RNA sequence: GCUGAGGCUAAAGUCACAUCUCGACACGGCUCUUGUCCUGGUGUGCUAGAGUCCUCGGAGAGAAUCUGCUGGUCCUGAUUCACUGGCGGGGGCUGUCAGUGCCCCCGCCAGUGCCUAGAUCAGUAACACAC
Numbered sequence: 001g002c003u004g005a006g007g008c009u010a011a012a013g014u015c016a017c018a019u020c021u022c023g024a025c026a027c028g029g030c031u032c033u034u035g036u037c038c039u040g041g042u043g044u045g046c047u048a049g050a051g052u053c054c055u056c057g058g059a060g061a062g063a064a065u066c067u068g069c070u071g072g073u074c075c076u077g078a079u080u081c082a083c084u085g086g087c088g089g090g091g092g093c094u095g096u097c098a099g100u101g102c103c104c105c106c107g108c109c110a111g112u113g114c115c116u117a118g119a120u121c122a123g124u125a126a127c128a129c130a131c
Stems, first nucleotide, its partner, number of pairs: 002058005007052003012047002015045006023037004069123006077115001081113006088106006

The family of this 131-nucleotide sequence from Microcebus murinus is "Small nucleolar RNA SNORA3/SNORA45 family". For this family Rfam cites "RNomics: an experimental approach that identifies 201 candidates for novel, small, non-messenger RNAs in mouse" (Huttenhofer et al., EMBO J, 2001). The family's consensus secondary structure was predicted with RNAalifold. A search with the family's covariance model found it, with a score of 132 bits. Taxonomically the source falls in Microcebus (Eukaryota, Teleostomi, Amniota, Euarchontoglires). The members of this family belong to the H/ACA class of snoRNAs which are thought to guide the sites of modification of uridines to pseudouridines. This family includes mouse snoMBI-28 and human homologues ACA3 (SNORA3) and ACA3-2 (SNORA45). Both ACA3 and ACA3-2 share the same host gene. MBI-28, ACA3 and ACA3-2 are all predicted to guide the pseudouridylation of residues in 28S rRNA.